[Rfam]
Rfam assigns this 97-nucleotide RNA from Pelusios castaneus to the family "DUF3800-V RNA".
Rfam classes the family as a small RNA.
A search with the family's covariance model found it, with a score of 38 bits.
RNA sequence: UAACAUAUGUAAAAAAUUCUCUUCCAUCUAAUUUGGUGUUCCCCUGGUGCCCUAGGCAACAACCUAGUUCACCUAUAUGGUUGGGCAAGCCCUGUAU
Numbered sequence: 001u002a003a004c005a006u007a008u009g010u011a012a013a014a015a016a017u018u019c020u021c022u023u024c025c026a027u028c029u030a031a032u033u034u035g036g037u038g039u040u041c042c043c044c045u046g047g048u049g050c051c052c053u054a055g056g057c058a059a060c061a062a063c064c065u066a067g068u069u070c071a072c073c074u075a076u077a078u079g080g081u082u083g084g085g086c087a088a089g090c091c092c093u094g095u096a097u
Base pairs, nucleotide, nucleotide: 003095004094005093009090010089024080025079026078027077029075030074031068032067033066035064036063037062042056043055046052047051